A member of the RNA family "Small nucleolar RNA U3" from Branchiostoma belcheri, 224 nucleotides long.
For this family Rfam cites "Nuclear retention elements of U3 small nucleolar RNA" (Speckmann et al., Mol Cell Biol, 1999).
Clan: U3 clan.
The base pairs follow the family's consensus structure, which is taken from published work.
Small nucleolar RNAs (snoRNAs) are involved in the processing and modification of rRNA in the nucleolus.
[Rfam]
RNA sequence: AAGAUCAUACUUUUAGGGAUCAUUUCUAUAGUGUGUAUCCCAUGCAUUCUCACGGAAACGUGAACGCACGCAGAAGUCACGAUGACGAGCGGUAGCGUUCCCUUCUGAGCGCGAAGUUGGCCGGGAGUGGAGCCCCUGGGGCUCCGGGCUCCCGGCCAUUGAUGACCGUUCCCCCCCCCCCCUCUUAUGGAUGGGCCGGAGGAAGGGAACGCAUUCCGAGUGGU
Numbered sequence: 001a002a003g004a005u006c007a008u009a010c011u012u013u014u015a016g017g018g019a020u021c022a023u024u025u026c027u028a029u030a031g032u033g034u035g036u037a038u039c040c041c042a043u044g045c046a047u048u049c050u051c052a053c054g055g056a057a058a059c060g061u062g063a064a065c066g067c068a069c070g071c072a073g074a075a076g077u078c079a080c081g082a083u084g085a086c087g088a089g090c091g092g093u094a095g096c097g098u099u100c101c102c103u104u105c106u107g108a109g110c111g112c113g114a115a116g117u118u119g120g121c122c123g124g125g126a127g128u129g130g131a132g133c134c135c136c137u138g139g140g141g142c143u144c145c146g147g148g149c150u151c152c153c154g155g156c157c158a159u160u161g162a163u164g165a166c167c168g169u170u171c172c173c174c175c176c177c178c179c180c181c182c183u184c185u186u187a188u189g190g191a192u193g194g195g196c197c198g199g200a201g202g203a204a205g206g207g208a209a210c211g212c213a214u215u216c217c218g219a220g221u222g223g224u
Stems, first nucleotide, its partner, number of pairs: 003039003006035006014028005050063004076224005095212012109169003119157004125151004129145005172198001174195003179190002